Rfam assigns this 206-nucleotide sequence from Oryza glumipatula to the family "MIR812 microRNA precursor family".

RNA sequence: AAAAAGACAAACCCUGAUUCCCGUGUCCAACGUUUGACCGUUCGUCUUAUUUAAAAAAAUUAUGAAAAAAAAUUAAAAAGAUAAGUCACGCAUAAAGUAUUAAUCAUGUUUUAUCAUCUAACAACAAUGAAAAUACUAAUUAUAAAAAAAUUUCAUAUAAGACGGACAGUCAAACAUUGACACAGGAACCCAGGGUUUGCCUUUUU
Numbered sequence: 001a002a003a004a005a006g007a008c009a010a011a012c013c014c015u016g017a018u019u020c021c022c023g024u025g026u027c028c029a030a031c032g033u034u035u036g037a038c039c040g041u042u043c044g045u046c047u048u049a050u051u052u053a054a055a056a057a058a059a060u061u062a063u064g065a066a067a068a069a070a071a072a073u074u075a076a077a078a079a080g081a082u083a084a085g086u087c088a089c090g091c092a093u094a095a096a097g098u099a100u101u102a103a104u105c106a107u108g109u110u111u112u113a114u115c116a117u118c119u120a121a122c123a124a125c126a127a128u129g130a131a132a133a134u135a136c137u138a139a140u141u142a143u144a145a146a147a148a149a150a151u152u153u154c155a156u157a158u159a160a161g162a163c164g165g166a167c168a169g170u171c172a173a174a175c176a177u178u179g180a181c182a183c184a185g186g187a188a189c190c191c192a193g194g195g196u197u198u199g200c201c202u203u204u205u206u
Stems, first nucleotide, its partner, number of pairs: 026180002029177001033174006040167011
The organism belongs to Oryza, within Eukaryota. The match comes from Rfam's covariance-model search (111 bits).